[Rfam]
RNA: Rhizobiales sRNA Atu_At1
Organism: Endobacterium cereale
RNA sequence: GAUUGCGGCGUGCCAAUCGGACACGACUGAGAUGGUGAACGCAUCGGUUUUUCCGAUUUCUCGAUGGGCAACGAAACGCCAGGCGAGCACCUUUACCUGUCCGCCGC
Number, nucleotide and partner (000 for none) at each position: 001g000002a000003u000004u000005g000006c106007g105008g104009c103010g000011u023012g022013c000014c020015a000016a000017u000018c000019g000020g014021a000022c012023a011024c000025g101026a100027c099028u000029g097030a000031g000032a000033u000034g091035g090036u089037g088038a000039a000040c066041g000042c000043a065044u064045c063046g062047g000048u000049u000050u000051u000052u000053c000054c000055g000056a000057u000058u000059u000060c000061u000062c046063g045064a044065u043066g040067g080068g079069c078070a000071a000072c000073g000074a000075a000076a000077c000078g069079c068080c067081a000082g000083g000084c000085g000086a000087g000088c037089a036090c035091c034092u000093u000094u000095a000096c000097c029098u000099g027100u026101c025102c000103g009104c008105c007106g006107c000